This 119-nucleotide RNA from Ilyobacter polytropus belongs to the Rfam family "FMN riboswitch aptamer (RFN element)". Pairs were carried over by alignment from the consensus structure, which is taken from published work. The match comes from Rfam's covariance-model search (114 bits). The organism belongs to Ilyobacter polytropus, within Bacteria.
[Rfam]
RNA sequence: AGGAAUCUUCAGGGCAGGGUGAAAUUCCCGACCGGCGGUGACAGUCCGCGAAGGCCAUAGGGCCUUGAUCUGGUGUAAUUCCAGAACCGACAGUAAAGUCUGGAUGGGAGAAGGAGAUU
Numbered sequence: 001a002g003g004a005a006u007c008u009u010c011a012g013g014g015c016a017g018g019g020u021g022a023a024a025u026u027c028c029c030g031a032c033c034g035g036c037g038g039u040g041a042c043a044g045u046c047c048g049c050g051a052a053g054g055c056c057a058u059a060g061g062g063c064c065u066u067g068a069u070c071u072g073g074u075g076u077a078a079u080u081c082c083a084g085a086a087c088c089g090a091c092a093g094u095a096a097a098g099u100c101u102g103g104a105u106g107g108g109a110g111a112a113g114g115a116g117a118u119u
Base pairs, nucleotide, nucleotide: 006114007113008112009111010110017029018028019027031099032098033089034088035049036048037047038046044087045086052065053064054063069085070084071083072082073081091102092101093100